[Rfam]
RNA sequence: GCUGAACGACAGGGGAGCGCCACCAGGCGCUGAGAGUGCGGAAACGGCCGCAGACCCUCGAACCUGAUCCGGUUAGCACCGGCGUGAGGAAGUCGAGCUCUUCUCGCA
Numbered sequence: 001g002c003u004g005a006a007c008g009a010c011a012g013g014g015g016a017g018c019g020c021c022a023c024c025a026g027g028c029g030c031u032g033a034g035a036g037u038g039c040g041g042a043a044a045c046g047g048c049c050g051c052a053g054a055c056c057c058u059c060g061a062a063c064c065u066g067a068u069c070c071g072g073u074u075a076g077c078a079c080c081g082g083c084g085u086g087a088g089g090a091a092g093u094c095g096a097g098c099u100c101u102u103c104u105c106g107c108a
Base pairs, nucleotide, nucleotide: 007095008094009093010092011058012057013056014055017030018029019028020027021026037052038051039050040049041048063089064088065087069082070081071080072079
Rfam assigns this 108-nucleotide sequence from Nocardioides sp. HDW12B to the family "TPP riboswitch aptamer (THI element)". Vitamin B(1) in its active form thiamin pyrophosphate (TPP) is an essential coenzyme that is synthesised by coupling of pyrimidine and thiazole moieties in bacteria. The family's consensus secondary structure is taken from published work. The organism belongs to Nocardioides, within Bacteria.